[Rfam]
RNA sequence: GGUCAAAAGUGAUGAUUGUUUCAAACAAUGGGAAUCUCUCUGAAAAAUUAUGUUGAUUGUUUGCUCUGAUUUGAUC
Number, nucleotide and partner (000 for none) at each position: 001g076002g075003u074004c073005a072006a071007a070008a000009g000010u000011g000012a000013u000014g000015a000016u000017u000018g000019u000020u000021u000022c000023a000024a000025a000026c000027a000028a000029u000030g000031g000032g000033a000034a000035u000036c000037u000038c000039u000040c000041u000042g000043a000044a000045a000046a000047a000048u000049u000050a000051u000052g000053u000054u000055g000056a000057u000058u000059g000060u000061u000062u000063g000064c000065u000066c000067u000068g000069a000070u007071u006072u005073g004074a003075u002076c001
Source information: A member of the RNA family "Small nucleolar RNA SNORD79" from Elysia chlorotica, 76 nucleotides long. It is annotated as a C/D-box small nucleolar RNA. Pairs were carried over by alignment from the consensus structure, which was predicted with PFOLD. Its Rfam clan is "SNORD74 clan". Taxonomically the source falls in Elysia (Eukaryota, Protostomia, Mollusca, Placobranchoidea). The match comes from Rfam's covariance-model search (53 bits).